[Rfam]
RNA sequence: UGGUAGAUGCACCCUGAUAACUCACUCCCUAGUAGAUCUCCAUCCGCUAGGGUUUUUUAUU
Dot-bracket structure: .(((......))).............(((((((.((......)).))))))).........
Rfam assigns this 61-nucleotide RNA sequence from Dulcicalothrix desertica to the family "Nitrogen stress-induced RNA 1". The base pairs follow the family's consensus structure. A reference for the family is Ionescu et al. (2010), "Heterocyst-specific transcription of NsiR1, a non-coding RNA encoded in a tandem array of direct repeats in cyanobacteria", J Mol Biol. Lineage of the source: Bacteria > Cyanophyceae > Nostocales > Calotrichaceae > Dulcicalothrix desertica. By type it is a small RNA.